[Rfam]
RNA sequence: UAAGAGUGAAUUCUGGAUUUAUUUGCGGGCUGGACGAAAUUAUGAUCUAGCACCACGUAAAUUCAGCAUUUGAACUU
Numbered sequence: 001u002a003a004g005a006g007u008g009a010a011u012u013c014u015g016g017a018u019u020u021a022u023u024u025g026c027g028g029g030c031u032g033g034a035c036g037a038a039a040u041u042a043u044g045a046u047c048u049a050g051c052a053c054c055a056c057g058u059a060a061a062u063u064c065a066g067c068a069u070u071u072g073a074a075c076u077u
Base pairs, nucleotide, nucleotide: 013066014065015064016063017062018061019060020059021058022057024055025054027053030050031049033047034046035044036043